Notes
A member of the RNA family "DUF3800-IX RNA", 67 nucleotides long. Rfam describes the family as follows. Actinobacteria, Firmicutes (1 example), Nitrospirae, Proteobacteria, Verrucomicrobia (1 example). By type it is a small RNA.
RNA sequence: GCCCGCUGAACCGAACUGUCACCGUAUGGUGCGCGUGCCCCGCGAGGGGAUAGGGAGGCGGGCUCUC
Numbered sequence: 001g002c003c004c005g006c007u008g009a010a011c012c013g014a015a016c017u018g019u020c021a022c023c024g025u026a027u028g029g030u031g032c033g034c035g036u037g038c039c040c041c042g043c044g045a046g047g048g049g050a051u052a053g054g055g056a057g058g059c060g061g062g063c064u065c066u067c
Stems, first nucleotide, its partner, number of pairs: 001063007011054002017035003020031004038049004